[Rfam]
RNA sequence: AAAACCUGAAACAUUGAAAGCCCUGCCUCUCUUUCACCGUAUGGCUCCAACGGCCGCCAAUGUGAAUCCAGCAUUCGAAAAUAAA
Dot-bracket structure: .................................(((...(.(((((.....)))))..)...)))....................

The family of this 85-nucleotide RNA from Paenactinomyces guangxiensis is "BsrC". It scores 55 bits against the family's covariance model. Rfam's curators write: The 301 nucleotide sequence from Kouji Nakamura has been trimmed to a highly conserved ~85 nucleotide long core to form this family. On this family, see Saito et al., Gene 2008: "Novel small RNA-encoding genes in the intergenic regions of Bacillus subtilis". Pairs were carried over by alignment from the consensus structure, which was predicted with CMfinder. The organism belongs to Paenactinomyces, within Bacteria. The family's RNA type in Rfam is small RNA.